The record is a 95-nucleotide RNA from Deltavirus italiense, which matches "Hepatitis delta virus ribozyme" in Rfam. Rfam describes the family as follows. The hepatitis delta virus (HDV) ribozyme is necessary for viral replication and is thought to be the only catalytic RNA known to be required for viability of a human pathogen. The base pairs follow the family's consensus structure, which is taken from published work. The organism belongs to Deltavirus italiense, within Viruses. The literature on the family includes a 1988 paper in J Virol by Kuo et al., "Characterization of self-cleaving RNA sequences on the genome and antigenome of human hepatitis delta virus".
RNA sequence: UCGGGUCGGCAUGGCAUCUCCACCUCCCCGCGGUCCGACCUGGGCAUCCGUAAGGAGGACAGACGUCCUACUCGGAUGGCUAAGGGAGAGCCACU
Numbered sequence: 001u002c003g004g005g006u007c008g009g010c011a012u013g014g015c016a017u018c019u020c021c022a023c024c025u026c027c028c029c030g031c032g033g034u035c036c037g038a039c040c041u042g043g044g045c046a047u048c049c050g051u052a053a054g055g056a057g058g059a060c061a062g063a064c065g066u067c068c069u070a071c072u073c074g075g076a077u078g079g080c081u082a083a084g085g086g087a088g089a090g091c092c093a094c095u
Stems, first nucleotide, its partner, number of pairs: 003041007012093004017089003022034003026043002045078006051070002054068003058064001